Background: Purine riboswitch aptamer: a 102-nucleotide sequence from Alkalicoccus urumqiensis. Rfam links the family to the GO term purine nucleobase biosynthetic process. The family's consensus secondary structure is taken from published work.
[Rfam]
RNA sequence: ACGCAGAUAAAGACGAAACCUCAUAUAAUACCGGGGAUACGGCCCGGAAGUUUCUACCUGCAGACCGUAAAUCAGCAGACUAUGAGGGAUCAGAUAAGCAUG
Numbered sequence: 001a002c003g004c005a006g007a008u009a010a011a012g013a014c015g016a017a018a019c020c021u022c023a024u025a026u027a028a029u030a031c032c033g034g035g036g037a038u039a040c041g042g043c044c045c046g047g048a049a050g051u052u053u054c055u056a057c058c059u060g061c062a063g064a065c066c067g068u069a070a071a072u073c074a075g076c077a078g079a080c081u082a083u084g085a086g087g088g089a090u091c092a093g094a095u096a097a098g099c100a101u102g
Stems, first nucleotide, its partner, number of pairs: 019087007029049001031047005058078004063073002
It scores 82 bits against the family's covariance model.